Overview:
Small nucleolar RNA SNORD35: an 87-nucleotide RNA from Erinaceus europaeus. Pairs were carried over by alignment from the consensus structure, which was predicted with PFOLD. Rfam's curators write: U35 is a C/D box snoRNA located in intron 6 of ribosomal protein L13A and intron 3 of ribosomal protein S11 in humans and at homologous positions in mouse and chicken ribosomal protein genes. Rfam classes the family as a C/D-box small nucleolar RNA. The family has 8 seed sequences and 1,842 matches in Rfam 15.1.
[Rfam]
Nucleotides: 087
Stems, first nucleotide, its partner, number of pairs: 001082004
Number, partner (000 for none) and nucleotide at each position: 001082g002081g003080c004079a005000g006000g007000u008000g009000a010000u011000g012000g013000u014000u015000u016000a017000c018000u019000c020000u021000c022000a023000c024000a025000a026000u027000g028000g029000u030000c031000u032000g033000u034000g035000a036000a037000u038000g039000c040000c041000a042000g043000u044000g045000a046000a047000g048000g049000c050000g051000a052000u053000g054000c055000c056000u057000a058000a059000a060000a061000u062000g063000c064000c065000a066000a067000u068000g069000g070000c071000u072000c073000a074000g075000c076000u077000g078000a079004u080003g081002c082001c083000a084000g085000g086000a087000g